The family of this 183-nucleotide RNA from Ornithinibacillus caprae is "6S / SsrS RNA".
The literature on the family includes a 2017 paper in RNA Biol by Elkina et al., "6S RNA in Rhodobacter sphaeroides: 6S RNA and pRNA transcript levels peak in late exponential phase and gene deletion causes a high salt stress phenotype".
E. coli 6S RNA was the first non coding RNA to be sequenced, but its function was unknown until recently. It consists of 184 nucleotides that fold into an extended hairpin structure with a large single-stranded internal bulge. The 6S RNA specifically associates with RNA polymerase holoenzyme containing the sigma70 specificity factor.
The family's RNA type in Rfam is non-coding RNA gene.
Rfam 15.1 lists 5,006 matches to the family in 4,638 species.
RNA sequence: AACAAGCUACGAUGUUCGUAUUUAUUUAAGUUUUAACCUCUAAUGAGAUAAUAGGGAGUUUUACAUUGAAGCUCUAAUGUCGUGCCGUCAAGAGCGGAAGGCAGGAAGGUUUCUGCAAACACCCACUUUGGUGAAGUGGUGGUUUAAAACUUUUUAUGAAAAUACGGCAUAGGUGGCUAUUGA
Numbered sequence: 001a002a003c004a005a006g007c008u009a010c011g012a013u014g015u016u017c018g019u020a021u022u023u024a025u026u027u028a029a030g031u032u033u034u035a036a037c038c039u040c041u042a043a044u045g046a047g048a049u050a051a052u053a054g055g056g057a058g059u060u061u062u063a064c065a066u067u068g069a070a071g072c073u074c075u076a077a078u079g080u081c082g083u084g085c086c087g088u089c090a091a092g093a094g095c096g097g098a099a100g101g102c103a104g105g106a107a108g109g110u111u112u113c114u115g116c117a118a119a120c121a122c123c124c125a126c127u128u129u130g131g132u133g134a135a136g137u138g139g140u141g142g143u144u145u146a147a148a149a150c151u152u153u154u155u156a157u158g159a160a161a162a163u164a165c166g167g168c169a170u171a172g173g174u175g176g177c178u179a180u181u182g183a
Stems, first nucleotide, its partner, number of pairs: 002181001005178006012170004017166003029151004034146003037142002054124003058120004065114001068113006079102002085097004